[Rfam]
RNA sequence: CCCUAGCCCGGAUGGAAGCGGCAUCCUUUUGCAAACCUCAAAGGUUUUCAAAACCUUUGAGGUUUGCAAAAGAUACAGCGGACAGCCGGAAGAAGC
Numbered sequence: 001c002c003c004u005a006g007c008c009c010g011g012a013u014g015g016a017a018g019c020g021g022c023a024u025c026c027u028u029u030u031g032c033a034a035a036c037c038u039c040a041a042a043g044g045u046u047u048u049c050a051a052a053a054c055c056u057u058u059g060a061g062g063u064u065u066g067c068a069a070a071a072g073a074u075a076c077a078g079c080g081g082a083c084a085g086c087c088g089g090a091a092g093a094a095g096c
Stems, first nucleotide, its partner, number of pairs: 009088003013084002018079002023074003029069019